[Rfam]
RNA sequence: CAGAAAUGGGGGUUCUUUGCAGCCCAAAACAAUGAAUGAUCGAUCAUCUUCUUGCUGUCGAUCUUAUUAUUAUUUGUUUUGGACUGAAGGGAGCUCCUAAUUCUU
Numbered sequence: 001c002a003g004a005a006a007u008g009g010g011g012g013u014u015c016u017u018u019g020c021a022g023c024c025c026a027a028a029a030c031a032a033u034g035a036a037u038g039a040u041c042g043a044u045c046a047u048c049u050u051c052u053u054g055c056u057g058u059c060g061a062u063c064u065u066a067u068u069a070u071u072a073u074u075u076g077u078u079u080u081g082g083a084c085u086g087a088a089g090g091g092a093g094c095u096c097c098u099a100a101u102u103c104u105u
Stems, first nucleotide, its partner, number of pairs: 007099012021085002024082009
The record is a 105-nucleotide sequence from Tetracentron sinense, which matches "MIR319 microRNA precursor family" in Rfam.
Rfam links the family to the GO terms miRNA-mediated post-transcriptional gene silencing and RISC complex.
Rfam 15.1 lists 168 matches to the family in 79 species.